[Rfam]
RNA: Rhizobiales sRNA Atu_C9
RNA sequence: CGUCAACGCAAGGAGGUCAGCCAUGGGACUCACACAUUCCUUGAAUGUUCUGAUGAUCAGUGCAGCGUUCCUCUUCGUCGCCACGAUGAUUUUUAUCUAAGGCGACCAAAGCGCAGUCAGAGAGGUCAGGGACAAAAGCAACAAACCCUGCCGAACCUAUCAAAAAAAUGCAUGGCCCCGGAGACGGCGCCAUGCAUUUU
Numbered sequence: 001c002g003u004c005a006a007c008g009c010a011a012g013g014a015g016g017u018c019a020g021c022c023a024u025g026g027g028a029c030u031c032a033c034a035c036a037u038u039c040c041u042u043g044a045a046u047g048u049u050c051u052g053a054u055g056a057u058c059a060g061u062g063c064a065g066c067g068u069u070c071c072u073c074u075u076c077g078u079c080g081c082c083a084c085g086a087u088g089a090u091u092u093u094u095a096u097c098u099a100a101g102g103c104g105a106c107c108a109a110a111g112c113g114c115a116g117u118c119a120g121a122g123a124g125g126u127c128a129g130g131g132a133c134a135a136a137a138g139c140a141a142c143a144a145a146c147c148c149u150g151c152c153g154a155a156c157c158u159a160u161c162a163a164a165a166a167a168a169u170g171c172a173u174g175g176c177c178c179c180g181g182a183g184a185c186g187g188c189g190c191c192a193u194g195c196a197u198u199u200u
Stems, first nucleotide, its partner, number of pairs: 015049002018047002025041004165200012